[Rfam]
RNA: Y RNA
Organism: Piliocolobus tephrosceles
RNA sequence: GGCUGGUCUGAAGGUAGUGAGUUAUCUCAACUGAUGGUUCAUAGUUAGUUACAGAUCCAACUCUUUAUUCUACACUUUCCUCCUCCUCACUCCUGCACUUGACUAGUCAAAA
Number, nucleotide and partner (000 for none) at each position: 001g108002g107003c106004u105005g104006g103007u102008c101009u000010g100011a099012a000013g000014g096015u095016a091017g090018u089019g088020a087021g086022u000023u000024a000025u000026c000027u000028c000029a000030a000031c000032u000033g000034a000035u000036g000037g000038u000039u000040c000041a000042u000043a000044g073045u072046u000047a071048g070049u000050u000051a000052c000053a000054g000055a000056u000057c000058c000059a000060a000061c000062u000063c000064u000065u000066u000067a000068u000069u000070c048071u047072a045073c044074a000075c000076u000077u000078u000079c000080c000081u000082c000083c000084u000085c000086c021087u020088c019089a018090c017091u016092c000093c000094u000095g015096c014097a000098c000099u011100u010101g008102a007103c006104u005105a004106g003107u002108c001109a000110a000111a000112a000